[Rfam]
RNA sequence: CUCCCCGAAAUGCAUUUAGGUGCAGCGUCGCGUGUUUCACUCUGGAGGUAGAGCUACUGGAUGGCCGAUGGGCCCCACAAGGUUACUGACGUCAGCCAAACUCCGAAUGCCAGAGUGUGAGAGCGCGGCAGUGAGACUGCGGGGGAUAAGCUUCGUAGUCGAGAGGGAAACAGCCCAGAUCGCCGGCUAAGGCCCCUAAGCGUGUACUAAGUGGAAAAGGAUGUGGGGUCGCGAAGACAACCAGGAGGUUGGCUUAGAAGCAGCCACCCUUGAAAGAGUGCGUAAUAGCUCACUGGUCAAGUGAUCCUGCGCCGACAAUGUAGCGGGGCUCAAGUACACCGCCGAAGCCGCGGCAUUCACAUAACACCCAUGCGGGUCUACGGGCCUGUGUGCAGUGGUGUGGAUGGGUAGGGGAGCGUCGUGCAGCCAUGGAAGCGCCGGAGUGAUCCAGGUGUGGAGGCUGCACGAGUGAGAAU
Numbered sequence: 001c002u003c004c005c006c007g008a009a010a011u012g013c014a015u016u017u018a019g020g021u022g023c024a025g026c027g028u029c030g031c032g033u034g035u036u037u038c039a040c041u042c043u044g045g046a047g048g049u050a051g052a053g054c055u056a057c058u059g060g061a062u063g064g065c066c067g068a069u070g071g072g073c074c075c076c077a078c079a080a081g082g083u084u085a086c087u088g089a090c091g092u093c094a095g096c097c098a099a100a101c102u103c104c105g106a107a108u109g110c111c112a113g114a115g116u117g118u119g120a121g122a123g124c125g126c127g128g129c130a131g132u133g134a135g136a137c138u139g140c141g142g143g144g145g146a147u148a149a150g151c152u153u154c155g156u157a158g159u160c161g162a163g164a165g166g167g168a169a170a171c172a173g174c175c176c177a178g179a180u181c182g183c184c185g186g187c188u189a190a191g192g193c194c195c196c197u198a199a200g201c202g203u204g205u206a207c208u209a210a211g212u213g214g215a216a217a218a219g220g221a222u223g224u225g226g227g228g229u230c231g232c233g234a235a236g237a238c239a240a241c242c243a244g245g246a247g248g249u250u251g252g253c254u255u256a257g258a259a260g261c262a263g264c265c266a267c268c269c270u271u272g273a274a275a276g277a278g279u280g281c282g283u284a285a286u287a288g289c290u291c292a293c294u295g296g297u298c299a300a301g302u303g304a305u306c307c308u309g310c311g312c313c314g315a316c317a318a319u320g321u322a323g324c325g326g327g328g329c330u331c332a333a334g335u336a337c338a339c340c341g342c343c344g345a346a347g348c349c350g351c352g353g354c355a356u357u358c359a360c361a362u363a364a365c366a367c368c369c370a371u372g373c374g375g376g377u378c379u380a381c382g383g384g385c386c387u388g389u390g391u392g393c394a395g396u397g398g399u400g401u402g403g404a405u406g407g408g409u410a411g412g413g414g415a416g417c418g419u420c421g422u423g424c425a426g427c428c429a430u431g432g433a434a435g436c437g438c439c440g441g442a443g444u445g446a447u448c449c450a451g452g453u454g455u456g457g458a459g460g461c462u463g464c465a466c467g468a469g470u471g472a473g474a475a476u
Base pairs, nucleotide, nucleotide: 001416002415003414004413005412006411011024012023013022014021015020026131027129028128029127030126031125032124033123036122038117039116040115041114042113043112044111045110051104052102053101058098059097060096062094063093064092065091070086071084072083073082074081135160136159137158138157139156140155141154142153143152144151165176166175167174180353181352182351183350185349186348187347191343192342193341200340202339203338204337205336206335207334219313220312223310224309225308226307227306228305229304230303231302232301240297241296242295243294244293246270247269248268251265252264253263271275276291280289281288354406355405356404357403358402359401360400361399417471419468420467421466422465423464424463425462426461427460428459435455436454437453438452439451440449441448442447